[Rfam]
Record summary: This 100-nucleotide RNA from Lepidothrix coronata belongs to the Rfam family "Small nucleolar RNA SNORD16". For this family Rfam cites "A novel small nucleolar RNA (U16) is encoded inside a ribosomal protein intron and originates by processing of the pre-mRNA" (Fragapane et al., EMBO J, 1993). Pairs were carried over by alignment from the consensus structure, which was predicted with PFOLD. The match comes from Rfam's covariance-model search (90 bits). By type it is a C/D-box small nucleolar RNA.
RNA sequence: UGCUGUGAUGACGUAAUUUGCGUCCUACCCAGUGCUCAGUGACAGUUGCCUGCUGUCGGUGCGCUGGCGCUGCCGGGUGACGACUCCCGAGUUCUGAGCA
Numbered sequence: 001u002g003c004u005g006u007g008a009u010g011a012c013g014u015a016a017u018u019u020g021c022g023u024c025c026u027a028c029c030c031a032g033u034g035c036u037c038a039g040u041g042a043c044a045g046u047u048g049c050c051u052g053c054u055g056u057c058g059g060u061g062c063g064c065u066g067g068c069g070c071u072g073c074c075g076g077g078u079g080a081c082g083a084c085u086c087c088c089g090a091g092u093u094c095u096g097a098g099c100a
Stems, first nucleotide, its partner, number of pairs: 001100003021082004030072005039064002041057005